[Rfam]
RNA sequence: UAUUUUUGGAAAGCGCCUGAACUAUUCAGACCGGGAUAAAAUGAAUAGUUGACGAGGAAGAGGUUUAUCGAAGAAAUCGGCGGAUGCCUCUCGGUUGAGACACCACAACCGCAAACUCUAGUAAGAAAACAAGAAGGUGACUUCUUGAACAAAGACUAAAGUAAUGGUGCU
Numbered sequence: 001u002a003u004u005u006u007u008g009g010a011a012a013g014c015g016c017c018u019g020a021a022c023u024a025u026u027c028a029g030a031c032c033g034g035g036a037u038a039a040a041a042u043g044a045a046u047a048g049u050u051g052a053c054g055a056g057g058a059a060g061a062g063g064u065u066u067a068u069c070g071a072a073g074a075a076a077u078c079g080g081c082g083g084a085u086g087c088c089u090c091u092c093g094g095u096u097g098a099g100a101c102a103c104c105a106c107a108a109c110c111g112c113a114a115a116c117u118c119u120a121g122u123a124a125g126a127a128a129a130c131a132a133g134a135a136g137g138u139g140a141c142u143u144c145u146u147g148a149a150c151a152a153a154g155a156c157u158a159a160a161g162u163a164a165u166g167g168u169g170c171u
Stems, first nucleotide, its partner, number of pairs: 020050008059091005068080004092111006116161002119158004130147007
A member of the RNA family "glmS glucosamine-6-phosphate activated ribozyme aptamer" from Anaerobacillus alkaliphilus, 171 nucleotides long. Pairs were carried over by alignment from the consensus structure, which is taken from published work. The family's RNA type in Rfam is riboswitch. This entry contains a glucosamine-6-phosphate activated ribozyme that is found in the mRNA for GlmS. GlmS is an enzyme that uses fructose-6-phosphate and glutamine to generate glucosamine-6-phosphate. The ribozyme catalyses self cleavage of the glmS mRNA that is thought to regulate GlmS activity.